[Rfam]
RNA: MIR1520 microRNA precursor family
RNA sequence: UGCUUACUUGACUGUAAUGUGUCACACUUUUAUUGGACGUAUUGGACGUUGACAUUAAUUAGGUGUACGAAAUUAACGUCCAAUAAAAACGUGACACGUGACCGUCAAGAUAA
Numbered sequence: 001u002g003c004u005u006a007c008u009u010g011a012c013u014g015u016a017a018u019g020u021g022u023c024a025c026a027c028u029u030u031u032a033u034u035g036g037a038c039g040u041a042u043u044g045g046a047c048g049u050u051g052a053c054a055u056u057a058a059u060u061a062g063g064u065g066u067a068c069g070a071a072a073u074u075a076a077c078g079u080c081c082a083a084u085a086a087a088a089a090c091g092u093g094a095c096a097c098g099u100g101a102c103c104g105u106c107a108a109g110a111u112a113a
Base pairs, nucleotide, nucleotide: 014102015101017099019097020096023093024092025091028088029087030086032084033083034082